[Rfam]
RNA sequence: CCAGGCUGGUUUCACGUGGUGGCUUGAUGUGAAAGUGCGAUUCUAGCACCAUUUGAAAUCAGUGUUGG
Number, nucleotide and partner (000 for none) at each position: 001c068002c067003a066004g065005g063006c062007u061008g060009g059010u058011u057012u056013c055014a054015c000016g052017u051018g050019g049020u048021g047022g000023c000024u000025u045026g043027a000028u000029g000030u000031g000032a000033a000034a000035g000036u000037g000038c000039g000040a000041u000042u000043c026044u000045a025046g000047c021048a020049c019050c018051a017052u016053u000054u014055g013056a012057a011058a010059u009060c008061a007062g006063u005064g000065u004066u003067g002068g001
Overview:
Rfam assigns this 68-nucleotide RNA from Petromyzon marinus to the family "mir-29 microRNA precursor family". About the family: This family represents the microRNA (miRNA) precursors mir-29. Its family is annotated with RISC complex and gene silencing by miRNA in the Gene Ontology. Rfam 15.1 lists 3,328 matches to the family in 787 species. The organism belongs to Petromyzon, within Eukaryota.